Rfam assigns this 196-nucleotide RNA from Duffyella gerundensis to the family "Lysine riboswitch aptamer". NCBI's taxonomy places the organism under Bacteria, Pseudomonadota, Enterobacterales, Erwiniaceae, Duffyella.

RNA sequence: CAAGCCAGAAGAGGCGCGUCGCCCAGGUAGUGUGUUAGAGGAGCCGUUUCCGCUGAAAACACAUGAUGGGGAGCGACGCCGAGGCGGAACAACACGCGGCGUGUUGUUCUGUCGACCACAGGGGCUGAAUCCUCUGGGUUGUCACCAGAAACGUGCGGCAGUCGGGCGUUUCGCAAGGUGGGGCGCUUCUGGGUGA
Number, nucleotide and partner (000 for none) at each position: 001c000002a000003a000004g000005c000006c191007a190008g189009a188010a187011g186012a000013g000014g000015c000016g079017c078018g077019u076020c075021g074022c073023c000024c071025a000026g000027g000028u000029a000030g064031u063032g062033u061034g060035u059036u058037a000038g000039a000040g000041g000042a000043g000044c000045c000046g000047u000048u000049u000050c000051c000052g000053c000054u000055g000056a000057a000058a036059a035060c034061a033062c032063a031064u030065g000066a000067u000068g000069g000070g000071g024072a000073g022074c021075g020076a019077c018078g017079c016080c000081g000082a000083g113084g112085c111086g110087g109088a108089a107090c106091a105092a104093c103094a102095c000096g000097c000098g000099g000100c000101g000102u094103g093104u092105u091106g090107u089108u088109c087110u086111g085112u084113c083114g140115a139116c138117c137118a000119c136120a135121g134122g133123g132124g131125c000126u000127g000128a000129a000130u000131c124132c123133u122134c121135u120136g119137g117138g116139u115140u114141g000142u181143c180144a179145c178146c177147a000148g000149a000150a000151a000152c000153g000154u000155g000156c000157g000158g000159c000160a000161g000162u000163c000164g000165g000166g000167c000168g000169u000170u000171u000172c000173g000174c000175a000176a000177g146178g145179u144180g143181g142182g000183g000184c000185g000186c011187u010188u009189c008190u007191g006192g000193g000194u000195g000196a000